[Rfam]
RNA: DUF805b RNA
RNA sequence: UAGGAGUUUUCUGAAAAUCCAUAAAAGAGUAGGAA
Numbered sequence: 001u002a003g004g005a006g007u008u009u010u011c012u013g014a015a016a017a018u019c020c021a022u023a024a025a026a027g028a029g030u031a032g033g034a035a
Base pairs, nucleotide, nucleotide: 003020004019005018010034011033012032